Rfam assigns this 74-nucleotide RNA sequence from Alligator sinensis to the family "Mammalian CPEB3 ribozyme".
The match comes from Rfam's covariance-model search (38 bits).
The mammalian CPEB3 ribozyme is a self cleaving RNA located in the second intron of the CPEB3 gene which belongs to a family of genes regulating messenger RNA polyadenylation. This ribozyme is highly conserved and found only in mammals. The CPEB3 ribozyme is structurally and biochemically related to the human hepatitis delta virus (HDV) ribozyme and the HDV ribozyme is proposed to have arisen from the human transcriptome. There is currently only one other known self cleaving ribozyme in mammals, the CoTC motif.
Pairs were carried over by alignment from the consensus structure, which is taken from published work.
[Rfam]
RNA sequence: UCACAAAUUCAAGGUUAUAGCAUAAGUGCUCAUGGUCCAGCCUGUCAGAUUUUAGCGUAUCUGUGAAUUCUUCU
Numbered sequence: 001u002c003a004c005a006a007a008u009u010c011a012a013g014g015u016u017a018u019a020g021c022a023u024a025a026g027u028g029c030u031c032a033u034g035g036u037c038c039a040g041c042c043u044g045u046c047a048g049a050u051u052u053u054a055g056c057g058u059a060u061c062u063g064u065g066a067a068u069u070c071u072u073c074u
Base pairs, nucleotide, nucleotide: 013042014041015040016039019074020073022071024069025068026038028036046063047062048061049060050059052057